The record is an 87-nucleotide sequence from Triticum aestivum, which matches "mir-160 microRNA precursor family" in Rfam. Rfam links the family to the GO terms miRNA-mediated post-transcriptional gene silencing and RISC complex. The organism belongs to Triticum, within Eukaryota. A search with the family's covariance model found it, with a score of 56 bits.

RNA sequence: GCUUGCCUGGCUCCCUGAAUGCCAUCCGGGAAGCGCGCCACUGUGGGAGGCGUCCCUCCUGGUUGGCAUUGAGGGAGUCAAGCAGGC
Dot-bracket structure: ((((((.(((((((.(.(((((((..(((.............................)))..))))))).).))))))).))))))